This 46-nucleotide RNA from Candidatus Vecturithrix granuli belongs to the Rfam family "Acido-Lenti-1 RNA". The family's RNA type in Rfam is small RNA. Lineage of the source: Bacteria > Candidatus Moduliflexota > Candidatus Vecturitrichia > Candidatus Vecturitrichales > Candidatus Vecturithrix.

RNA sequence: CCCACCGUUAAAACGGUGGGCUAUUCUCACCUGUCCCUCCGGGACA
Numbered sequence: 001c002c003c004a005c006c007g008u009u010a011a012a013a014c015g016g017u018g019g020g021c022u023a024u025u026c027u028c029a030c031c032u033g034u035c036c037c038u039c040c041g042g043g044a045c046a
Stems, first nucleotide, its partner, number of pairs: 001020008033045005